The record is an 80-nucleotide RNA sequence from Azoarcus sp. KH32C, which matches "Group II catalytic intron D1-D4-1" in Rfam.
It scores 57 bits against the family's covariance model.
RNA sequence: CUACCGGCAUCGCGAGGUGUCGGGAUGCGGGUGAGGAAGUCAGCCGAGGCCAUAGUAGGUGCCGGGACGGACCGAAGGGC
Number, nucleotide and partner (000 for none) at each position: 001c027002u000003a000004c023005c022006g021007g020008c019009a018010u017011c016012g000013c000014g000015a000016g011017g010018u009019g008020u007021c006022g005023g004024g000025a000026u000027g001028c000029g000030g000031g000032u000033g000034a000035g000036g000037a000038a000039g000040u047041c046042a000043g000044c000045c000046g041047a040048g000049g080050c079051c078052a000053u000054a000055g000056u000057a000058g073059g072060u071061g000062c070063c069064g068065g000066g000067a000068c064069g063070g062071a060072c059073c058074g000075a000076a000077g000078g051079g050080c049
The family has 237 seed sequences and 2,508 matches in Rfam 15.1. Taxonomically the source falls in Azoarcus (Bacteria, Pseudomonadota, Rhodocyclales, Zoogloeaceae).